A member of the RNA family "Small nucleolar RNA snoR53Y" from Trema andersonii, 82 nucleotides long. The family has 7 seed sequences and 513 matches in Rfam 15.1. Rfam links the family to the GO terms RNA processing and nucleolus. The source organism's lineage runs through Eukaryota, Viridiplantae, Gunneridae, rosids and Trema. On this family, see Brown et al., RNA 2001: "Multiple snoRNA gene clusters from Arabidopsis".

[Rfam]
RNA sequence: GUUCCCCAUGAUGCUUUUACUUAACCAUGCUAAUGCUGAUUACUGCAUGACGAUCUCUUUUUGAUAUUAUUCUGAGGGAACU
Numbered sequence: 001g002u003u004c005c006c007c008a009u010g011a012u013g014c015u016u017u018u019a020c021u022u023a024a025c026c027a028u029g030c031u032a033a034u035g036c037u038g039a040u041u042a043c044u045g046c047a048u049g050a051c052g053a054u055c056u057c058u059u060u061u062u063g064a065u066a067u068u069a070u071u072c073u074g075a076g077g078g079a080a081c082u
Base pairs, nucleotide, nucleotide: 001081002080003079004078005077